[Rfam]
RNA sequence: GACUUACUUCUCAGUAGCAAGGUUAACCAUUAGGGGAGCCGUAGGGAAACCGAGUCUUAAAUGGGCGAUUAGUUGCUGGGAGUAGACCCGAAACCGGGUGAUCUAUCCAUGGUCAGGGUGAAGGUUAGGUAAAACUAACUGGAGGCCCGAACCCACUUAUGUUGAAAAAUGAGGGGAUGAACUGUGGAUAGGGGUGAAAGGCCAAACAAACCCGGAGAUAGCUGGUU
Numbered sequence: 001g002a003c004u005u006a007c008u009u010c011u012c013a014g015u016a017g018c019a020a021g022g023u024u025a026a027c028c029a030u031u032a033g034g035g036g037a038g039c040c041g042u043a044g045g046g047a048a049a050c051c052g053a054g055u056c057u058u059a060a061a062u063g064g065g066c067g068a069u070u071a072g073u074u075g076c077u078g079g080g081a082g083u084a085g086a087c088c089c090g091a092a093a094c095c096g097g098g099u100g101a102u103c104u105a106u107c108c109a110u111g112g113u114c115a116g117g118g119u120g121a122a123g124g125u126u127a128g129g130u131a132a133a134a135c136u137a138a139c140u141g142g143a144g145g146c147c148c149g150a151a152c153c154c155a156c157u158u159a160u161g162u163u164g165a166a167a168a169a170u171g172a173g174g175g176g177a178u179g180a181a182c183u184g185u186g187g188a189u190a191g192g193g194g195u196g197a198a199a200g201g202c203c204a205a206a207c208a209a210a211c212c213c214g215g216a217g218a219u220a221g222c223u224g225g226u227u
Stems, first nucleotide, its partner, number of pairs: 005084003009081010021040004027034002044051002054066004087225002090222001094215006103191011114179001116148004123140006152176003156173005193203003